[Rfam]
Nucleotides: 186
Stems, first nucleotide, its partner, number of pairs: 003083001006080001010076001015072001018069001020066003025062001026057001029055003033051003095113003098109004121181009132170001137165003141161004147156003
Number, partner (000 for none) and nucleotide at each position: 001000c002000a003083g004000a005000a006080u007000g008000a009000a010076g011000a012000a013000a014000u015072g016000a017000a018069u019000a020066c021065u022064g023000u024000a025062u026057g027000a028000u029055u030054u031053g032000a033051a034050u035049u036000c037000a038000a039000g040000a041000a042000a043000a044000g045000u046000g047000u048000g049035a050034g051033u052000g053031c054030a055029g056000c057026c058000u059000g060000g061000u062025a063000c064022c065021a066020g067000a068000c069018a070000g071000c072015c073000c074000c075000a076010c077000c078000a079000u080006g081000a082000c083003c084000u085000a086000c087000a088000g089000c090000a091000a092000g093000u094000g095113c096112u097111c098109g099108g100107g101106g102000c103000g104000c105000u106101c107100c108099c109098u110000u111097g112096g113095g114000c115000u116000u117000g118000a119000a120000a121181u122180u123179u124178g125177c126176a127175g128174u129173a130000a131000c132170a133000g134000a135000u136000g137165u138164g139163a140000a141161c142160a143159u144158u145000c146000u147156a148155g149154u150000a151000g152000u153000a154149g155148u156147u157000u158144g159143g160142u161141g162000a163139u164138c165137g166000u167000g168000u169000a170132u171000a172000c173129u174128a175127c176126u177125g178124c179123a180122a181121a182000c183000a184000g185000g186000a